[Rfam]
RNA sequence: AUCUAGCAUAAGCCGAAACUUCCAAAAUGGGAGUGCGGGGGAUUAAUUUACUAUGAACGGGAGAUAUACCUGUUCAUUUGGGGUGAAUCUCGGCUUAAAUCCGAGUAGGGCUACCCUUUGAUCCGAACCCGACAACUAACCUCGCAGGCAAUCUACUAAAAGGAGCA
Numbered sequence: 001a002u003c004u005a006g007c008a009u010a011a012g013c014c015g016a017a018a019c020u021u022c023c024a025a026a027a028u029g030g031g032a033g034u035g036c037g038g039g040g041g042a043u044u045a046a047u048u049u050a051c052u053a054u055g056a057a058c059g060g061g062a063g064a065u066a067u068a069c070c071u072g073u074u075c076a077u078u079u080g081g082g083g084u085g086a087a088u089c090u091c092g093g094c095u096u097a098a099a100u101c102c103g104a105g106u107a108g109g110g111c112u113a114c115c116c117u118u119u120g121a122u123c124c125g126a127a128c129c130c131g132a133c134a135a136c137u138a139a140c141c142u143c144g145c146a147g148g149c150a151a152u153c154u155a156c157u158a159a160a161a162g163g164a165g166c167a
Stems, first nucleotide, its partner, number of pairs: 012149003018034006035145006046079001081130003089105004108124003

The record is a 167-nucleotide RNA from Paenibacillus sp. GP183, which matches "c-di-AMP riboswitch aptamer (ydaO/yuaA leader)" in Rfam. The organism belongs to Paenibacillus, within Bacteria.